This 72-nucleotide RNA from Anaerostipes sp. 992a belongs to the Rfam family "tRNA". It scores 64 bits against the family's covariance model. Pairs were carried over by alignment from the consensus structure, which is taken from published work.
[Rfam]
RNA sequence: UGGGCUAUCGCCAAAUGGUAAGGCCCUGGAUUCUGAUUCCAGUAUCUGCAGGUUCGAAUCCUGCUAGCCCAG
Numbered sequence: 001u002g003g004g005c006u007a008u009c010g011c012c013a014a015a016u017g018g019u020a021a022g023g024c025c026c027u028g029g030a031u032u033c034u035g036a037u038u039c040c041a042g043u044a045u046c047u048g049c050a051g052g053u054u055c056g057a058a059u060c061c062u063g064c065u066a067g068c069c070c071a072g
Stems, first nucleotide, its partner, number of pairs: 001071007010024003026042005048064005
Annotation: NCBI's taxonomy places the organism under Bacteria, Bacillati, Bacillota, Clostridia, Anaerostipes.